SAH (S-adenosyl-L-homocysteine) riboswitch aptamer: a 90-nucleotide sequence from Geothrix sp. A search with the family's covariance model found it, with a score of 49 bits.

RNA sequence: CGGUCCGAGGAGCGCUGCAGGACCCGGCAGCUCGGCUGCGCGGGAUCUCAGGCUCGGAUGCUUCCCCAUCAGGAACGGCGCUCACCUCAA
Numbered sequence: 001c002g003g004u005c006c007g008a009g010g011a012g013c014g015c016u017g018c019a020g021g022a023c024c025c026g027g028c029a030g031c032u033c034g035g036c037u038g039c040g041c042g043g044g045a046u047c048u049c050a051g052g053c054u055c056g057g058a059u060g061c062u063u064c065c066c067c068a069u070c071a072g073g074a075a076c077g078g079c080g081c082u083c084a085c086c087u088c089a090a
Stems, first nucleotide, its partner, number of pairs: 003059006021047002024044002
The family has 52 seed sequences and 1,354 matches in Rfam 15.1.